[Rfam]
RNA sequence: GCACCCUGGACUCUCUUCAAAGCGAAUAAAUCUUUCGCCUUUUACUAAAGAUUUCCGUGGAGAGGGUCAACAUAAAUGGGUAUAUUCUAAAUUUUUUUCAGGCCUGUCUUUGUGAUGGGCCA
Numbered sequence: 001g002c003a004c005c006c007u008g009g010a011c012u013c014u015c016u017u018c019a020a021a022g023c024g025a026a027u028a029a030a031u032c033u034u035u036c037g038c039c040u041u042u043u044a045c046u047a048a049a050g051a052u053u054u055c056c057g058u059g060g061a062g063a064g065g066g067u068c069a070a071c072a073u074a075a076a077u078g079g080g081u082a083u084a085u086u087c088u089a090a091a092u093u094u095u096u097u098u099c100a101g102g103c104c105u106g107u108c109u110u111u112g113u114g115a116u117g118g119g120c121c122a
Stems, first nucleotide, its partner, number of pairs: 003081004009068011028054008101121006